The family of this 133-nucleotide sequence is "Small nucleolar RNA SNORA13".

[Rfam]
RNA sequence: AGCCUUUGUGUUGCCCAUUCACUUUUGGUCACUAGUGAAUGUGGUGUCAAAAAAGGCAUAAAUAAAUGCUUUGCGGCCUUUCCUGUCCCUGGAGUUUGGUAUCUUGGGUGUACGAGCUGCAUAAGUAACAGUA
Numbered sequence: 001a002g003c004c005u006u007u008g009u010g011u012u013g014c015c016c017a018u019u020c021a022c023u024u025u026u027g028g029u030c031a032c033u034a035g036u037g038a039a040u041g042u043g044g045u046g047u048c049a050a051a052a053a054a055g056g057c058a059u060a061a062a063u064a065a066a067u068g069c070u071u072u073g074c075g076g077c078c079u080u081u082c083c084u085g086u087c088c089c090u091g092g093a094g095u096u097u098g099g100u101a102u103c104u105u106g107g108g109u110g111u112a113c114g115a116g117c118u119g120c121a122u123a124a125g126u127a128a129c130a131g132u133a
Stems, first nucleotide, its partner, number of pairs: 002057006009049002012046004016041008068126004072121006083114001087110001088108002092103002
It is annotated as an H/ACA-box small nucleolar RNA. ACA13 is a member of the H/ACA class of snoRNA that guide the sites of modification of uridines to pseudouridines.